[Rfam]
Nucleotides: 078
Stems, first nucleotide, its partner, number of pairs: 022039003026035003058077008
Number, partner (000 for none) and nucleotide at each position: 001000c002000g003000u004000u005000a006000a007000a008000c009000c010000a011000u012000a013000a014000c015000u016000a017000a018000c019000u020000c021000a022039g023038g024037g025000c026035c027034u028033u029000g030000u031000u032000a033028a034027a035026g036000a037024c038023c039022c040000g041000a042000a043000g044000u045000a046000c047000a048000a049000u050000u051000u052000u053000u054000g055000a056000a057000g058077c059076c060075c061074u062073g063072u064071c065070u066000c067000u068000c069000g070065a071064g072063g073062c074061a075060g076059g077058g078000g